[Rfam]
RNA sequence: AAAGUUUUAAAAGCGCCUGAACUAAUGACUGGACGAAAAGGGUUGUUAGUUGACGAGGUGGAGGUUAAUCGAUAUUCGGCGGGUGCCUCCCGGUUUCGUAUGCAGAUCGUUAUUUCUUUUUCUAAAUCACUGAAGGCGACUUAGUGGACAAUGAAGAGAAAAUGCAUACA
Numbered sequence: 001a002a003a004g005u006u007u008u009a010a011a012a013g014c015g016c017c018u019g020a021a022c023u024a025a026u027g028a029c030u031g032g033a034c035g036a037a038a039a040g041g042g043u044u045g046u047u048a049g050u051u052g053a054c055g056a057g058g059u060g061g062a063g064g065u066u067a068a069u070c071g072a073u074a075u076u077c078g079g080c081g082g083g084u085g086c087c088u089c090c091c092g093g094u095u096u097c098g099u100a101u102g103c104a105g106a107u108c109g110u111u112a113u114u115u116c117u118u119u120u121u122c123u124a125a126a127u128c129a130c131u132g133a134a135g136g137c138g139a140c141u142u143a144g145u146g147g148a149c150a151a152u153g154a155a156g157a158g159a160a161a162a163u164g165c166a167u168a169c170a
Stems, first nucleotide, its partner, number of pairs: 020051008029042001060090005069079004091109006114160007128146004133142003

This 170-nucleotide RNA from Bacillus yapensis belongs to the Rfam family "glmS glucosamine-6-phosphate activated ribozyme aptamer". Gene Ontology terms of the family: regulation of gene expression and catalytic activity. The family's consensus secondary structure is taken from published work. This entry contains a glucosamine-6-phosphate activated ribozyme that is found in the mRNA for GlmS. GlmS is an enzyme that uses fructose-6-phosphate and glutamine to generate glucosamine-6-phosphate.